RNA: mir-8/mir-141/mir-200 microRNA precursor family
Nucleotides: 082
Base pairs, nucleotide, nucleotide: 002081003080006077007076008075009074010072011071012070013069014068017067019065020064021063022062024060025059026058027057028056029055
Number, partner (000 for none) and nucleotide at each position: 001000u002081g003080c004000a005000u006077c007076a008075u009074c010072u011071u012070a013069c014068u015000u016000g017067u018000a019065a020064c021063a022062g023000c024060a025059u026058u027057a028056g029055a030000u031000u032000a033000g034000a035000a036000u037000u038000u039000a040000u041000u042000u043000c044000a045000a046000u047000u048000u049000g050000a051000a052000a053000u054000u055029u056028c057027u058026a059025a060024u061000a062022c063021u064020g065019u066000c067017a068014g069013g070012u071011a072010a073000a074009g075008a076007u077006g078000u079000c080003g081002u082000u